GP20-b RNA: a 55-nucleotide RNA sequence from Peptococcus niger. Rfam classes the family as a cis-regulatory element.
RNA sequence: GGUUGCCCGACCUAAAACAGGAACGCCCGGUCAUGGCGACGACCUAAAAAGCCUA
Numbered sequence: 001g002g003u004u005g006c007c008c009g010a011c012c013u014a015a016a017a018c019a020g021g022a023a024c025g026c027c028c029g030g031u032c033a034u035g036g037c038g039a040c041g042a043c044c045u046a047a048a049a050a051g052c053c054u055a
Stems, first nucleotide, its partner, number of pairs: 001012004006021002029044004
The source organism's lineage runs through Bacteria, Bacillati, Clostridia, Eubacteriales and Peptococcus.